RNA sequence: CACCUGUGGUUCCCUUUCCCAUGGGAUCUGAACACCUGUCCUGGUGGUCGUAAAGGGACGACUAGUCAUACGGAAGCUGUCCUCAGGAGGCCUGUAAUCUGCUUUAGAGCGUGUGGGCUAGUUUCAAACAAGG
Numbered sequence: 001c002a003c004c005u006g007u008g009g010u011u012c013c014c015u016u017u018c019c020c021a022u023g024g025g026a027u028c029u030g031a032a033c034a035c036c037u038g039u040c041c042u043g044g045u046g047g048u049c050g051u052a053a054a055g056g057g058a059c060g061a062c063u064a065g066u067c068a069u070a071c072g073g074a075a076g077c078u079g080u081c082c083u084c085a086g087g088a089g090g091c092c093u094g095u096a097a098u099c100u101g102c103u104u105u106a107g108a109g110c111g112u113g114u115g116g117g118c119u120a121g122u123u124u125c126a127a128a129c130a131a132g133g
Base pairs, nucleotide, nucleotide: 003060005058007056019047020046021045022044025040026039027038077121078120079119081117082116083115093111094110095109